[Rfam]
RNA sequence: AGCGCUGUUCCCUCCACUCGGAUCGUCCGGCACGUUCCUGCCGGUGGAAAGGAAGUU
Numbered sequence: 001a002g003c004g005c006u007g008u009u010c011c012c013u014c015c016a017c018u019c020g021g022a023u024c025g026u027c028c029g030g031c032a033c034g035u036u037c038c039u040g041c042c043g044g045u046g047g048a049a050a051g052g053a054a055g056u057u
Base pairs, nucleotide, nucleotide: 010051013048014047015046016045027044028043029042030041031040032039
A member of the RNA family "msiK RNA" from Paractinoplanes ferrugineus, 57 nucleotides long. It scores 47 bits against the family's covariance model. The source organism's lineage runs through Bacteria, Bacillati, Actinomycetota, Micromonosporaceae and Paractinoplanes.